[Rfam]
RNA sequence: GUUACCUUUAAUUCAGUCCUGUGAGACUGGCAAGGUGUAAAGACAGUUUAGCUGUCUUUCAUAAUAGUAGAAAUGGUAUACCCAUUUCUAUAUUCUUAUGCAUAAAAGCACCUUAGCCUAAUCCGGCCAAGGUGCUUUUCUUU
Dot-bracket structure: ..((((((....((((((......)))))).))))))..........................(..((((((((((.....))))))))))..)..........((((((((((.(((......))).)))))))))).....
Numbered sequence: 001g002u003u004a005c006c007u008u009u010a011a012u013u014c015a016g017u018c019c020u021g022u023g024a025g026a027c028u029g030g031c032a033a034g035g036u037g038u039a040a041a042g043a044c045a046g047u048u049u050a051g052c053u054g055u056c057u058u059u060c061a062u063a064a065u066a067g068u069a070g071a072a073a074u075g076g077u078a079u080a081c082c083c084a085u086u087u088c089u090a091u092a093u094u095c096u097u098a099u100g101c102a103u104a105a106a107a108g109c110a111c112c113u114u115a116g117c118c119u120a121a122u123c124c125g126g127c128c129a130a131g132g133u134g135c136u137u138u139u140c141u142u143u
Stems, first nucleotide, its partner, number of pairs: 003037006013030006064094001067091010105138010116127003
A member of the RNA family "PyrR binding site" from Ornithinibacillus hominis, 143 nucleotides long. The match comes from Rfam's covariance-model search (60 bits). By type it is a cis-regulatory element.